[Rfam]
RNA: mir-132 microRNA precursor family
RNA sequence: CGGCACCGGCCUUGGCUCUAGACUGCUUACUGCUGCGUAGGGACAGGACAGUAACAGUCUACAGUCAUGGCUACUGAAGCAUG
Numbered sequence: 001c002g003g004c005a006c007c008g009g010c011c012u013u014g015g016c017u018c019u020a021g022a023c024u025g026c027u028u029a030c031u032g033c034u035g036c037g038u039a040g041g042g043a044c045a046g047g048a049c050a051g052u053a054a055c056a057g058u059c060u061a062c063a064g065u066c067a068u069g070g071c072u073a074c075u076g077a078a079g080c081a082u083g
Stems, first nucleotide, its partner, number of pairs: 010070002013067004021059005027054005